[Rfam]
RNA sequence: CCCUCCGAAGUUUCCCUCAGGAUAGCUGGCGCUCAGAGUCUCGCAGUUUUAUCUGGUAAAGCGAAUGAUUAGAGGUCUUGGGGCCGAAACGAUCUCAACCUAUUCUCAAACUUUAAAUGGGUAAGAAGCCCGGCUCGCUGGCUUGGAGCCGGGCGUGGAAUGCGAGCCGCCUAGUGGGCCACUUUUGGUAAGCAGAACUGGCGCUGCGGGAUGAACCGAACGCCGGGUUAAGGCGCCCGAUGCCGACGCUCAUCAGACCCCAGAAAAGGUGUUGGUCGAUAUAGACAGCAGGACGGUGGCCAUGGAAGUCGGAAUCCGCUAAGGAGUGUGUAACAACUCACCUGCCGAAUCAACUAGCCCUGAAAAUGGAUGGCGCUGGAGCGUCGGGCCCAUACCCGGCCGUCGCCGGCAACAGGAGCCGCGAGGGCUAUGCCGCGACGAGUAGGAGGGCCGCCGCGGUGAGCACGGAAGCCUAGGGCGUGGGCCCGGGUGGAGCCGCCGCGGGUGCAGAU
Numbered sequence: 001c002c003c004u005c006c007g008a009a010g011u012u013u014c015c016c017u018c019a020g021g022a023u024a025g026c027u028g029g030c031g032c033u034c035a036g037a038g039u040c041u042c043g044c045a046g047u048u049u050u051a052u053c054u055g056g057u058a059a060a061g062c063g064a065a066u067g068a069u070u071a072g073a074g075g076u077c078u079u080g081g082g083g084c085c086g087a088a089a090c091g092a093u094c095u096c097a098a099c100c101u102a103u104u105c106u107c108a109a110a111c112u113u114u115a116a117a118u119g120g121g122u123a124a125g126a127a128g129c130c131c132g133g134c135u136c137g138c139u140g141g142c143u144u145g146g147a148g149c150c151g152g153g154c155g156u157g158g159a160a161u162g163c164g165a166g167c168c169g170c171c172u173a174g175u176g177g178g179c180c181a182c183u184u185u186u187g188g189u190a191a192g193c194a195g196a197a198c199u200g201g202c203g204c205u206g207c208g209g210g211a212u213g214a215a216c217c218g219a220a221c222g223c224c225g226g227g228u229u230a231a232g233g234c235g236c237c238c239g240a241u242g243c244c245g246a247c248g249c250u251c252a253u254c255a256g257a258c259c260c261c262a263g264a265a266a267a268g269g270u271g272u273u274g275g276u277c278g279a280u281a282u283a284g285a286c287a288g289c290a291g292g293a294c295g296g297u298g299g300c301c302a303u304g305g306a307a308g309u310c311g312g313a314a315u316c317c318g319c320u321a322a323g324g325a326g327u328g329u330g331u332a333a334c335a336a337c338u339c340a341c342c343u344g345c346c347g348a349a350u351c352a353a354c355u356a357g358c359c360c361u362g363a364a365a366a367u368g369g370a371u372g373g374c375g376c377u378g379g380a381g382c383g384u385c386g387g388g389c390c391c392a393u394a395c396c397c398g399g400c401c402g403u404c405g406c407c408g409g410c411a412a413c414a415g416g417a418g419c420c421g422c423g424a425g426g427g428c429u430a431u432g433c434c435g436c437g438a439c440g441a442g443u444a445g446g447a448g449g450g451c452c453g454c455c456g457c458g459g460u461g462a463g464c465a466c467g468g469a470a471g472c473c474u475a476g477g478g479c480g481u482g483g484g485c486c487c488g489g490g491u492g493g494a495g496c497c498g499c500c501g502c503g504g505g506u507g508c509a510g511a512u
Stems, first nucleotide, its partner, number of pairs: 001450006011024001013022003028171004033166001047126008059114001060112002066108003071103001073101003078098006085091001128154009178202004183197005207218003222400005228394001232390003241387001243386001247383003267361003271358006278351003288345005294318003300312002319323001324339001328337002401440006408434003452507001454504008463496002471491002477486003
RNA: Eukaryotic large subunit ribosomal RNA, nucleotides 1203 to 1714